[Rfam]
RNA sequence: CCUCCUUUUCUUGGCAUCUCCGAACUCCCACCGUGUUUGUGAGAUGAAUGCAACCAGGAGGAAGAUAAACGUGAUGAACCUUCGGUGUCAGGGGUCAAACCGUGCCCUGGUCCCAUCCUCUAGCAUCAUGACAAUU
Dot-bracket structure: (((((.........((((((.((((.........))))..))))))..........)))))..........(((((...........((((((...........)))))).............)))))........

Rfam assigns this 136-nucleotide sequence from Strongylocentrotus purpuratus to the family "Small nucleolar RNA SNORA57". By type it is an H/ACA-box small nucleolar RNA. A reference for the family is Vitali et al. (2003), "Identification of 13 novel human modification guide RNAs", Nucleic Acids Res. Lineage of the source: Eukaryota > Metazoa > Bilateria > Camarodonta > Strongylocentrotus. Gene Ontology terms of the family: nucleolus and RNA processing. U99 belongs to the H/ACA class of snoRNAs which are thought to guide the sites of modification of uridines to pseudouridines, the target for this family is unknown. The base pairs follow the family's consensus structure, which was predicted with PFOLD.